[Rfam]
RNA sequence: CCUGGCACUCACGUGCCAGGCUACGUGAUGUCGUCGCUUCGCGACU
Numbered sequence: 001c002c003u004g005g006c007a008c009u010c011a012c013g014u015g016c017c018a019g020g021c022u023a024c025g026u027g028a029u030g031u032c033g034u035c036g037c038u039u040c041g042c043g044a045c046u
Base pairs, nucleotide, nucleotide: 001020002019003018004017005016006015007014008013033045034044035043036042037041